[Rfam]
RNA sequence: CCGCAUUCUUCAAAACCCCCCAGUAGCUGCCUGUAUAGCUGCAGGGACAAGGAGGAAUGCCACAGAAAUCCUGGAGUAAAGCAAAGCUGGGUGUGUCAUCUCUAACUCUCAGCCAUUUCAGCUCCUGGACAUUC
Numbered sequence: 001c002c003g004c005a006u007u008c009u010u011c012a013a014a015a016c017c018c019c020c021c022a023g024u025a026g027c028u029g030c031c032u033g034u035a036u037a038g039c040u041g042c043a044g045g046g047a048c049a050a051g052g053a054g055g056a057a058u059g060c061c062a063c064a065g066a067a068a069u070c071c072u073g074g075a076g077u078a079a080a081g082c083a084a085a086g087c088u089g090g091g092u093g094u095g096u097c098a099u100c101u102c103u104a105a106c107u108c109u110c111a112g113c114c115a116u117u118u119c120a121g122c123u124c125c126u127g128g129a130c131a132u133u134c
Stems, first nucleotide, its partner, number of pairs: 003060004009052002019046003023042001025040003065134002069129003073125003086113006093106002
This 134-nucleotide RNA from Conger conger belongs to the Rfam family "Small nucleolar RNA SNORA14".
A search with the family's covariance model found it, with a score of 61 bits.
About the family: ACA14 is a member of the H/ACA class of snoRNA that guide the sites of modification of uridines to pseudouridines.
The organism belongs to Conger, within Eukaryota.
Its family is annotated with RNA processing and nucleolus in the Gene Ontology.
By type it is an H/ACA-box small nucleolar RNA.